[Rfam]
RNA sequence: GCGUAACAUUCGCCCCGAUUUAGUAACAUGAGGACACACACUUUGGACAGUCAUAGUCGAUACCGAUUAACGUUUUAACCUAUCGCCUCAUGUCUUAUUAUUGGCGAUAGUUAUC
Numbered sequence: 001g002c003g004u005a006a007c008a009u010u011c012g013c014c015c016c017g018a019u020u021u022a023g024u025a026a027c028a029u030g031a032g033g034a035c036a037c038a039c040a041c042u043u044u045g046g047a048c049a050g051u052c053a054u055a056g057u058c059g060a061u062a063c064c065g066a067u068u069a070a071c072g073u074u075u076u077a078a079c080c081u082a083u084c085g086c087c088u089c090a091u092g093u094c095u096u097a098u099u100a101u102u103g104g105c106g107a108u109a110g111u112u113a114u115c
Stems, first nucleotide, its partner, number of pairs: 001013003005010001031076005043066004050061003078112001080110008
The family of this 115-nucleotide sequence from Conservatibacter flavescens is "Aggregatibacter sRNA 54". The family's RNA type in Rfam is small RNA. Rfam describes the family as follows. Validated by RT-PCR, expression up-regulated during growth. A reference for the family is Oogai et al. (2017), "Small RNA repertoires and their intraspecies variation in Aggregatibacter actinomycetemcomitans", DNA Res. The match comes from Rfam's covariance-model search (83 bits). The source organism's lineage runs through Bacteria, Pseudomonadati, Gammaproteobacteria, Pasteurellaceae and Conservatibacter.